The family of this 171-nucleotide sequence from Candidatus Acidiferrum panamense is "Group II catalytic intron D1-D4-3". From the family's description: Group II introns are found in rRNA, tRNA and mRNA of organelles in fungi, plants and protists, and also in mRNA in bacteria. The source organism's lineage runs through Bacteria, Pseudomonadati, Terriglobia, Candidatus Acidiferrales and Candidatus Acidiferrum.
RNA sequence: CUCGCCGUGAGGCGGGGCCCGAAAGAAGCGUGGAGCAAAGAUGCGAGCCGAUGAACAAGAACCGGAUACGAGGCCUACGGUGGCGGGCGAAGAGGCACAUGACGACAAAGCCCAUAUCCAUCAAGCGCACUGGUGGUAAAUCCGGCGGCUGUGCAUCGAAGGUGGUCGAAC
Numbered sequence: 001c002u003c004g005c006c007g008u009g010a011g012g013c014g015g016g017g018c019c020c021g022a023a024a025g026a027a028g029c030g031u032g033g034a035g036c037a038a039a040g041a042u043g044c045g046a047g048c049c050g051a052u053g054a055a056c057a058a059g060a061a062c063c064g065g066a067u068a069c070g071a072g073g074c075c076u077a078c079g080g081u082g083g084c085g086g087g088c089g090a091a092g093a094g095g096c097a098c099a100u101g102a103c104g105a106c107a108a109a110g111c112c113c114a115u116a117u118c119c120a121u122c123a124a125g126c127g128c129a130c131u132g133g134u135g136g137u138a139a140a141u142c143c144g145g146c147g148g149c150u151g152u153g154c155a156u157c158g159a160a161g162g163u164g165g166u167c168g169a170a171c
Stems, first nucleotide, its partner, number of pairs: 001016006028171001031168002035163002040157006046150005062145006073137003078132005085113004094103001